[Rfam]
RNA sequence: GUUUAGCCCCGAUUGCAGUGAAAAUCCCACGCUUUUUGGCGUGGAUUGUAACGGAAAGCGGGAGGGAAG
Dot-bracket structure: ........(((.((...((...((((.(((((......)))))))))...))...)).)))........
RNA: Flavo-1 RNA